A member of the RNA family "drz-agam-1 ribozyme" from Hermetia illucens, 75 nucleotides long. It scores 38 bits against the family's covariance model. Gene Ontology term of the family: catalytic activity.

[Rfam]
RNA sequence: AGUUUAACAAGUCUUCACACAACCGCCUCGCGGUGGCUGCUGGAAACCGUCUUUGGGCGGGUCAAAUGUGUGAAG
Numbered sequence: 001a002g003u004u005u006a007a008c009a010a011g012u013c014u015u016c017a018c019a020c021a022a023c024c025g026c027c028u029c030g031c032g033g034u035g036g037c038u039g040c041u042g043g044a045a046a047c048c049g050u051c052u053u054u055g056g057g058c059g060g061g062u063c064a065a066a067u068g069u070g071u072g073a074a075g
Stems, first nucleotide, its partner, number of pairs: 013075009022034003045062001047060005